[Rfam]
RNA sequence: UUCGACGACGGGUAUUCUUGGGUAGAUAAUACGGAUUGCGUUGUUAUUGCUUGAGAAUACGCGUAGCCGAG
Dot-bracket structure: ((((...(((.((((((((((((.(((((((((.....)).))))))))))))))))))).)))...))))
Record summary
Shown here is a 71-nucleotide sequence from Mauremys mutica, a member of the family "mir-137 microRNA precursor family". Rfam 15.1 lists 1,138 matches to the family in 797 species. The family's consensus secondary structure was predicted with RNAalifold. The source organism's lineage runs through Eukaryota, Dipnotetrapodomorpha, Archelosauria, Testudinoidea and Mauremys. A reference for the family is Ruby et al. (2007), "Evolution, biogenesis, expression, and target predictions of a substantially expanded set of Drosophila microRNAs", Genome Res. Clan: mir-137 clan. Gene Ontology terms of the family: miRNA-mediated post-transcriptional gene silencing and RISC complex.